[Rfam]
RNA sequence: GGCAGCUGUCUUAGAGCUGCCACGGCAUUGGCGUGUUAAUAGGGCUGUGCAUGGCCGUACAGUCUGGUUAGAGAAUC
Numbered sequence: 001g002g003c004a005g006c007u008g009u010c011u012u013a014g015a016g017c018u019g020c021c022a023c024g025g026c027a028u029u030g031g032c033g034u035g036u037u038a039a040u041a042g043g044g045c046u047g048u049g050c051a052u053g054g055c056c057g058u059a060c061a062g063u064c065u066g067g068u069u070a071g072a073g074a075a076u077c
Stems, first nucleotide, its partner, number of pairs: 001021006036071005042065009
RNA: L13-Bacteroidia ribosomal protein leader